RNA sequence: AAGAUCAUGCUUCAUAGGAUCAUUUCUAUAGGCUGAUCGCCGAGUUUCAACCGUAAACUCGGAACACCCUCAACCACGAUGAGGAGUCGUAGGGUCUCCACCUGAGCGCGAAGCCGGUCAGGUGACUUGGGUUUCCUGCCUGGGUUCCUGCCAUUGAUGACCGUUCCCACCGGGCUUGGACGCCCGCUGGGAGGGUGGAGACUCAUUCUGAGUGGC
Numbered sequence: 001a002a003g004a005u006c007a008u009g010c011u012u013c014a015u016a017g018g019a020u021c022a023u024u025u026c027u028a029u030a031g032g033c034u035g036a037u038c039g040c041c042g043a044g045u046u047u048c049a050a051c052c053g054u055a056a057a058c059u060c061g062g063a064a065c066a067c068c069c070u071c072a073a074c075c076a077c078g079a080u081g082a083g084g085a086g087u088c089g090u091a092g093g094g095u096c097u098c099c100a101c102c103u104g105a106g107c108g109c110g111a112a113g114c115c116g117g118u119c120a121g122g123u124g125a126c127u128u129g130g131g132u133u134u135c136c137u138g139c140c141u142g143g144g145u146u147c148c149u150g151c152c153a154u155u156g157a158u159g160a161c162c163g164u165u166c167c168c169a170c171c172g173g174g175c176u177u178g179g180a181c182g183c184c185c186g187c188u189g190g191g192a193g194g195g196u197g198g199a200g201a202c203u204c205a206u207u208c209u210g211a212g213u214g215g216c
Stems, first nucleotide, its partner, number of pairs: 003038005010031002015028005042060003047057001074215004092204012106164003116152003120149003127143005167190002171186005

Notes
The record is a 216-nucleotide RNA from Ixodes scapularis, which matches "Small nucleolar RNA U3" in Rfam. The sequence is in the family's curated seed alignment. Rfam 15.1 lists 19,072 matches to the family in 1,215 species. NCBI's taxonomy places the organism under Eukaryota, Eumetazoa, Arachnida, Ixodida, Ixodes. A reference for the family is Marz and Stadler (2010), "Comparative analysis of eukaryotic U3 snoRNA", RNA Biol. From the family's description: Small nucleolar RNAs (snoRNAs) are involved in the processing and modification of rRNA in the nucleolus. There are two main classes of snoRNAs: the box C/D class, and the box H/ACA class. U3 snoRNA is a member of the box C/D class. Indeed, the box C/D element is a subset of the six short sequence elements found in all U3 snoRNAs, namely boxes A, A', B, C, C', and D. The U3 snoRNA secondary structure is characterised by a small 5' domain (with boxes A and A'), and a larger 3' domain (with boxes B, C, C', and D), the two domains being linked by a single-stranded hinge. Boxes B and C form the B/C motif, which appears to be exclusive to U3 snoRNAs, and boxes C' and D form the C'/D motif. The latter is functionally similar to the C/D motifs found in other snoRNAs. The 5' domain and the hinge region act as a pre-rRNA-binding domain. The 3' domain has conserved protein-binding sites. Both the box B/C and box C'/D motifs are sufficient for nuclear retention of U3 snoRNA. The box C'/D motif is also necessary for nucleolar localisation, stability and hyper-methylation of U3 snoRNA. Both box B/C and C'/D motifs are involved in specific protein interactions and are necessary for the rRNA processing functions of U3 snoRNA.